[Rfam]
RNA sequence: GCCGGGAGUGGUGGCGCACUCCUGUCACUCCAGUGUCUGGGAGGGCAUAAUACGGUGGAUGGGCGGCGACCGGGGGUUCUGAGCACUUGUGGGCUAUGUUGAUCAGGUGUCCGCACUAAGCUCUGCGUCGAUAUGGGGGUGCGGGGGGAGCCCUGCCCUUCCAGGUUGACUAACGAGGAGCGUAUAGGCCCAGGGCGGAGACGCAGCAGGCAAAAGUUCCCGCGUUGAGCAGUGGUGGGAUCGCGCCCGGGAAUAGGCACUGGUGGUCAGCCUGGUCAACCUGUCCAGACCCGUAUAUUU
Numbered sequence: 001g002c003c004g005g006g007a008g009u010g011g012u013g014g015c016g017c018a019c020u021c022c023u024g025u026c027a028c029u030c031c032a033g034u035g036u037c038u039g040g041g042a043g044g045g046c047a048u049a050a051u052a053c054g055g056u057g058g059a060u061g062g063g064c065g066g067c068g069a070c071c072g073g074g075g076g077u078u079c080u081g082a083g084c085a086c087u088u089g090u091g092g093g094c095u096a097u098g099u100u101g102a103u104c105a106g107g108u109g110u111c112c113g114c115a116c117u118a119a120g121c122u123c124u125g126c127g128u129c130g131a132u133a134u135g136g137g138g139g140u141g142c143g144g145g146g147g148g149a150g151c152c153c154u155g156c157c158c159u160u161c162c163a164g165g166u167u168g169a170c171u172a173a174c175g176a177g178g179a180g181c182g183u184a185u186a187g188g189c190c191c192a193g194g195g196c197g198g199a200g201a202c203g204c205a206g207c208a209g210g211c212a213a214a215a216g217u218u219c220c221c222g223c224g225u226u227g228a229g230c231a232g233u234g235g236u237g238g239g240a241u242c243g244c245g246c247c248c249g250g251g252a253a254u255a256g257g258c259a260c261u262g263g264u265g266g267u268c269a270g271c272c273u274g275g276u277c278a279a280c281c282u283g284u285c286c287a288g289a290c291c292c293g294u295a296u297a298u299u300u
Base pairs, nucleotide, nucleotide: 001046002045003044004023005022006021007020008019009018010017028043029042030041050296051295052294053293054292055291060287061286062285063284064283065282068277069276070275071274072273073272074271079270080269081268082267084265085264086263087262089260090259091258094256095255096254097253099251103250104249106247107246108245109244110243111239112238114237115236116235117234118233120230121229122228123227125225126224127223128222129168130167131166132165134163135162136161137160138159139158141156142155143154144153145152146151177220178219179218180217181216188211189210190209195204196203197202